The family of this 137-nucleotide RNA from Formicarius rufipectus is "Small nucleolar RNA SNORA17".
Pairs were carried over by alignment from the consensus structure, which was predicted with RNAalifold.

RNA sequence: GUUGCUACUGAUCAUCUCUGGCAGGCGUGGCUGCAGUGCCACGUUUGUGUCAUUCGGUGGCAGAGAGGACAAGGCGAGGUCUUCCCCUGGUGCUCUGACCCACGUGGGCUCCCAGGAUUUCUCAACAGCCUGACAUU
Numbered sequence: 001g002u003u004g005c006u007a008c009u010g011a012u013c014a015u016c017u018c019u020g021g022c023a024g025g026c027g028u029g030g031c032u033g034c035a036g037u038g039c040c041a042c043g044u045u046u047g048u049g050u051c052a053u054u055c056g057g058u059g060g061c062a063g064a065g066a067g068g069a070c071a072a073g074g075c076g077a078g079g080u081c082u083u084c085c086c087c088u089g090g091u092g093c094u095c096u097g098a099c100c101c102a103c104g105u106g107g108g109c110u111c112c113c114a115g116g117a118u119u120u121c122u123c124a125a126c127a128g129c130c131u132g133a134c135a136u137u
Base pairs, nucleotide, nucleotide: 002063003062004061005060006059008057009056010055011054016049021048022047023046024045026043027042028041029040030039031038072131073130074129075128076123077122078121083117084116085115089113090112092109093108094107095106